[Rfam]
RNA sequence: UGGGCAGUAUCCGAGGAACUGCACCCGGUUGUUUUCUAUGUUCACUAUAUUAAAUUCUGCCCGGAUCCGAAGCGGACGGGGACAGAGGG
Numbered sequence: 001u002g003g004g005c006a007g008u009a010u011c012c013g014a015g016g017a018a019c020u021g022c023a024c025c026c027g028g029u030u031g032u033u034u035u036c037u038a039u040g041u042u043c044a045c046u047a048u049a050u051u052a053a054a055u056u057c058u059g060c061c062c063g064g065a066u067c068c069g070a071a072g073c074g075g076a077c078g079g080g081g082a083c084a085g086a087g088g089g
Base pairs, nucleotide, nucleotide: 002025003024004022005021006020007019008018010017011016057085058084059083060081061080062079064077066076067075068074